[Rfam]
RNA sequence: CUGCUGGUCUCUGUGGCCUUCGCCUUUUGCGAACGGCCAAUGGCUGGUGGCUUUUGCCACCGGCCU
Number, nucleotide and partner (000 for none) at each position: 001c000002u000003g000004c000005u000006g000007g000008u000009c000010u000011c000012u000013g000014u039015g038016g037017c036018c035019u000020u000021c000022g030023c029024c000025u000026u000027u000028u000029g023030c022031g000032a000033a000034c000035g018036g017037c016038c015039a014040a000041u000042g065043g064044c063045u062046g061047g060048u059049g058050g057051c056052u000053u000054u000055u000056g051057c050058c049059a048060c047061c046062g045063g044064c043065c042066u000
RNA: Pseudomonas sRNA P26